This 231-nucleotide RNA sequence from Drosophila willistoni belongs to the Rfam family "R2 RNA element". The organism belongs to Sophophora, within Eukaryota. Rfam classes the family as a cis-regulatory element. The base pairs follow the family's consensus structure, which is taken from published work. About the family: This family represents the 3' UTR region of the R2 retrotransposable element. It scores 119 bits against the family's covariance model.

RNA sequence: AGGUAGCUAGCUCUUUCAUUGACGACGAAUUGCAAAGGGCUCGAGAUAGAUUAACGGCGGAAAAUGGUGCAAACGGAAAAAAGGUACAAACAUCGCAUUGUCAAAAAGAGGUGGUUUUAGUACGUAGGCGCUGUGGGACUUCAUUGUCCUGAUGAUGCAGCGAAUCGUGCAUACGAGAUUGUCCAGUAGUUGGUUGCUCGUAUCUUUAGAAGAUUUCCUUCCUCGGCGAUC
Numbered sequence: 001a002g003g004u005a006g007c008u009a010g011c012u013c014u015u016u017c018a019u020u021g022a023c024g025a026c027g028a029a030u031u032g033c034a035a036a037g038g039g040c041u042c043g044a045g046a047u048a049g050a051u052u053a054a055c056g057g058c059g060g061a062a063a064a065u066g067g068u069g070c071a072a073a074c075g076g077a078a079a080a081a082a083g084g085u086a087c088a089a090a091c092a093u094c095g096c097a098u099u100g101u102c103a104a105a106a107a108g109a110g111g112u113g114g115u116u117u118u119a120g121u122a123c124g125u126a127g128g129c130g131c132u133g134u135g136g137g138a139c140u141u142c143a144u145u146g147u148c149c150u151g152a153u154g155a156u157g158c159a160g161c162g163a164a165u166c167g168u169g170c171a172u173a174c175g176a177g178a179u180u181g182u183c184c185a186g187u188a189g190u191u192g193g194u195u196g197c198u199c200g201u202a203u204c205u206u207u208a209g210a211a212g213a214u215u216u217c218c219u220u221c222c223u224c225g226g227c228g229a230u231c
Stems, first nucleotide, its partner, number of pairs: 012082001092230005108224004113218002120170005129162006135150005172202006